[Rfam]
RNA sequence: UGGCGGGGGAGCACUACAACCGGAGGAGCCUGCGGUUUAAUUGGACUCAACGCCGGACAUCUCACCAGCAUCGACAACAGGAGUGACGAUCAGUGUGAUGAGCUUAUCAGACCUGUUGAGAGGAGGUGCAUGGCCGCCGUCAGCUCGUACCGUGAGGCGUCCUGUUAAGUCAGGCAACGAGCGAGACCCGCAUCCUUAAUUGCCAGCACUGGCUCGCGCCAGGUGGGUACAUUAGGGAGACUGCCGUGGCUAACACGGAGGAAGGAACGGGCAACGGUAGGUCAGUAUGCCCCGAAUGUGCUGGGCGACACGCGGGCUACAAUGGUCGAGACAGUGGGAUGCAACCCCGAAAGGGGACGCUAAUCUCCGAAACUCGAUCGUAGUUCGGAUUGAGGGCUGAAACUCGCCCUCAUGAAGCUGGAUUCGGUAGUAAUCGCCGCUCAGAAGGCGGCGGUGAAUACGUCCCUGCUCCUUGCACACACCGCCCGUCAAAGCACCCGAGUGGGGUCCGGAUGAGGCCGCUUUCGGCGGUCGAAUCUGGGCUCCGCAAGGGGGCUUAAGUCGUAACAAGGUAGCCGUAGGGGAAUCUGCGGCUGGAUC
Numbered sequence: 001u002g003g004c005g006g007g008g009g010a011g012c013a014c015u016a017c018a019a020c021c022g023g024a025g026g027a028g029c030c031u032g033c034g035g036u037u038u039a040a041u042u043g044g045a046c047u048c049a050a051c052g053c054c055g056g057a058c059a060u061c062u063c064a065c066c067a068g069c070a071u072c073g074a075c076a077a078c079a080g081g082a083g084u085g086a087c088g089a090u091c092a093g094u095g096u097g098a099u100g101a102g103c104u105u106a107u108c109a110g111a112c113c114u115g116u117u118g119a120g121a122g123g124a125g126g127u128g129c130a131u132g133g134c135c136g137c138c139g140u141c142a143g144c145u146c147g148u149a150c151c152g153u154g155a156g157g158c159g160u161c162c163u164g165u166u167a168a169g170u171c172a173g174g175c176a177a178c179g180a181g182c183g184a185g186a187c188c189c190g191c192a193u194c195c196u197u198a199a200u201u202g203c204c205a206g207c208a209c210u211g212g213c214u215c216g217c218g219c220c221a222g223g224u225g226g227g228u229a230c231a232u233u234a235g236g237g238a239g240a241c242u243g244c245c246g247u248g249g250c251u252a253a254c255a256c257g258g259a260g261g262a263a264g265g266a267a268c269g270g271g272c273a274a275c276g277g278u279a280g281g282u283c284a285g286u287a288u289g290c291c292c293c294g295a296a297u298g299u300g301c302u303g304g305g306c307g308a309c310a311c312g313c314g315g316g317c318u319a320c321a322a323u324g325g326u327c328g329a330g331a332c333a334g335u336g337g338g339a340u341g342c343a344a345c346c347c348c349g350a351a352a353g354g355g356g357a358c359g360c361u362a363a364u365c366u367c368c369g370a371a372a373c374u375c376g377a378u379c380g381u382a383g384u385u386c387g388g389a390u391u392g393a394g395g396g397c398u399g400a401a402a403c404u405c406g407c408c409c410u411c412a413u414g415a416a417g418c419u420g421g422a423u424u425c426g427g428u429a430g431u432a433a434u435c436g437c438c439g440c441u442c443a444g445a446a447g448g449c450g451g452c453g454g455u456g457a458a459u460a461c462g463u464c465c466c467u468g469c470u471c472c473u474u475g476c477a478c479a480c481a482c483c484g485c486c487c488g489u490c491a492a493a494g495c496a497c498c499c500g501a502g503u504g505g506g507g508u509c510c511g512g513a514u515g516a517g518g519c520c521g522c523u524u525u526c527g528g529c530g531g532u533c534g535a536a537u538c539u540g541g542g543c544u545c546c547g548c549a550a551g552g553g554g555g556c557u558u559a560a561g562u563c564g565u566a567a568c569a570a571g572g573u574a575g576c577c578g579u580a581g582g583g584g585a586a587u588c589u590g591c592g593g594c595u596g597g598a599u600c
Base pairs, nucleotide, nucleotide: 001479002478003476004475005474007473008472009471010470011469012468013467016463017462020427021426022425023424024423025320027318028317029316030315031314032313033312034311035309036308041056042055043054044053065304066303067302068301069300070299071298075118076117077116078115080113081112088108089107090106092104093103094102122293123292125291126290127289128288131287132286133282134281135280136278137277138276139275143182144181145180146179147178148177150157151156161174162173163172164171188270189269190268193238194237195236196235197234198233199232203227204226207225208224209223210221211220212219213218241261242260244258245257246256247255248254324379325378326377327376328375329374330373336367337366338365341360342359345356346355347354348353386417391412392411393410394409395408396407397406433455434454435453436452437451438450439449440448482571484568487564488563490561492558493557494556495555497553498552499551502548503547504546505545506544507543508542509541510540511539512538513537514536517533518532519531520530521529522528523527573596574595575594576593577592578591579590580589581588582587
The record is a 600-nucleotide part of an RNA from Natranaeroarchaeum sulfidigenes, which matches "Archaeal small subunit ribosomal RNA" in Rfam.
It scores 1573 bits against the family's covariance model.
A reference for the family is Yusupov et al. (2001), "Crystal structure of the ribosome at 5.5 A resolution", Science.
The organism belongs to Natranaeroarchaeum, within Archaea.
Clan: SSU clan.